[Rfam]
RNA sequence: UGACUGAGUAGAAGCAGUCAGGUCCGGUCUCUGCCUGUUGGCGAACCCGGAUCGGGUCAUUGCUCAUCGC
Dot-bracket structure: ....((((((....(...[.(((((((...................))))))).)]....))))))....